[Rfam]
RNA sequence: CAAACUGCGCAGUGAUGUGCGGCUGAAUGAUGCAGAAGUCAGCCGAGGUCAUAGUAGCUACCUUUGGCAGCGAAGGAC
Numbered sequence: 001c002a003a004a005c006u007g008c009g010c011a012g013u014g015a016u017g018u019g020c021g022g023c024u025g026a027a028u029g030a031u032g033c034a035g036a037a038g039u040c041a042g043c044c045g046a047g048g049u050c051a052u053a054g055u056a057g058c059u060a061c062c063u064u065u066g067g068c069a070g071c072g073a074a075g076g077a078c
Stems, first nucleotide, its partner, number of pairs: 001025002005022007039046002048078003057071003061067002
Dot-bracket structure: ((..(((((((....))))))).)).............((....)).(((......(((.((...)).)))....)))
RNA: Group II catalytic intron D1-D4-1
Organism: Sporolactobacillus inulinus